[Rfam]
RNA sequence: UGUUGGCAAAGAAUGAUGAUUCAAUUAGAUGUGUGAAUGGAUUUAUAUAUAAUCCAUUUUGAACUCAAAACUUUUGAGGCAUAAAAUUUGUCUGACUUGCCAUUU
Numbered sequence: 001u002g003u004u005g006g007c008a009a010a011g012a013a014u015g016a017u018g019a020u021u022c023a024a025u026u027a028g029a030u031g032u033g034u035g036a037a038u039g040g041a042u043u044u045a046u047a048u049a050u051a052a053u054c055c056a057u058u059u060u061g062a063a064c065u066c067a068a069a070a071c072u073u074u075u076g077a078g079g080c081a082u083a084a085a086a087u088u089u090g091u092c093u094g095a096c097u098u099g100c101c102a103u104u105u
Base pairs, nucleotide, nucleotide: 002104004102005101006100007099008098010097011096
RNA: Small nucleolar RNA Z266